[Rfam]
A member of the RNA family "Small nucleolar RNA SNORA31" from Carlito syrichta, 129 nucleotides long. The literature on the family includes a 2001 paper in EMBO J by Huttenhofer et al., "RNomics: an experimental approach that identifies 201 candidates for novel, small, non-messenger RNAs in mouse". Pairs were carried over by alignment from the consensus structure, which was predicted with RNAalifold. The match comes from Rfam's covariance-model search (101 bits). The family has 5 seed sequences and 2,094 matches in Rfam 15.1. NCBI's taxonomy places the organism under Eukaryota, Eumetazoa, Deuterostomia, Primates, Carlito.
RNA sequence: CUGUAUCCACUGAUAGACCUUGAACAGUUGCUGUUACUCUUUGGGUUUGCACUAGUAUGCAAAAGAAAGAAAUCCCUAUGAUUUCUGCUUAUCUUUGUGGUAACCCAGAUUAAAUUGGAUAAUACAUCU
Numbered sequence: 001c002u003g004u005a006u007c008c009a010c011u012g013a014u015a016g017a018c019c020u021u022g023a024a025c026a027g028u029u030g031c032u033g034u035u036a037c038u039c040u041u042u043g044g045g046u047u048u049g050c051a052c053u054a055g056u057a058u059g060c061a062a063a064a065g066a067a068a069g070a071a072a073u074c075c076c077u078a079u080g081a082u083u084u085c086u087g088c089u090u091a092u093c094u095u096u097g098u099g100g101u102a103a104c105c106c107a108g109a110u111u112a113a114a115u116u117g118g119a120u121a122a123u124a125c126a127u128c129u
Base pairs, nucleotide, nucleotide: 002061003060004059005058006057008055011051012050014049015048016047017046018045019044022039023038026035027034028033073121076118077117078116084109085108086107087106089103090102091101092100093099